[Rfam]
Nucleotides: 035
Stems, first nucleotide, its partner, number of pairs: 001035004006031003010028001013026004017021001
Number, partner (000 for none) and nucleotide at each position: 001035c002034u003033g004032u005000c006031u007030c008029u009000u010028g011000c012000u013026u014025c015024a016023a017021c018000a019000g020000u021017g022000u023016u024015u025014g026013a027000c028010u029008a030007g031006a032004a033003c034002a035001g